The family of this 107-nucleotide sequence from Thiosulfatimonas sediminis is "TPP riboswitch aptamer (THI element)". Gene Ontology term of the family: thiamine pyrophosphate binding. The organism belongs to Thiosulfatimonas, within Bacteria. The match comes from Rfam's covariance-model search (71 bits). Rfam's curators write: Vitamin B(1) in its active form thiamin pyrophosphate (TPP) is an essential coenzyme that is synthesised by coupling of pyrimidine and thiazole moieties in bacteria.
RNA sequence: AAUCAUGCCAAGGGGAGGCCGAACAUCCGGCCUGAGAUUUCAUUGCGAAAGACCCUUAAGCACCUGAUCCGGAUAAUACUGGCGUAGGGAUGGCAAACAUAGCAAAA
Numbered sequence: 001a002a003u004c005a006u007g008c009c010a011a012g013g014g015g016a017g018g019c020c021g022a023a024c025a026u027c028c029g030g031c032c033u034g035a036g037a038u039u040u041c042a043u044u045g046c047g048a049a050a051g052a053c054c055c056u057u058a059a060g061c062a063c064c065u066g067a068u069c070c071g072g073a074u075a076a077u078a079c080u081g082g083c084g085u086a087g088g089g090a091u092g093g094c095a096a097a098c099a100u101a102g103c104a105a106a107a
Stems, first nucleotide, its partner, number of pairs: 006095005011056004017032005039049003063088004069082004